[Rfam]
RNA sequence: AGCACUUACUGUGCUGGCUAUGGUAAGUCCGACGUGCUCCCACGCACUGCCCGAAAGGGCUUGGGAUUAC
Numbered sequence: 001a002g003c004a005c006u007u008a009c010u011g012u013g014c015u016g017g018c019u020a021u022g023g024u025a026a027g028u029c030c031g032a033c034g035u036g037c038u039c040c041c042a043c044g045c046a047c048u049g050c051c052c053g054a055a056a057g058g059g060c061u062u063g064g065g066a067u068u069a070c
Stems, first nucleotide, its partner, number of pairs: 001015005023070004029065002034047004049060004

Overview: A member of the RNA family "S15-Methanomicrobia ribosomal protein leader", 70 nucleotides long. Clan: Ribosomal Protein S15 Leader clan. It is one of the family's seed sequences. By type it is a cis-regulatory leader.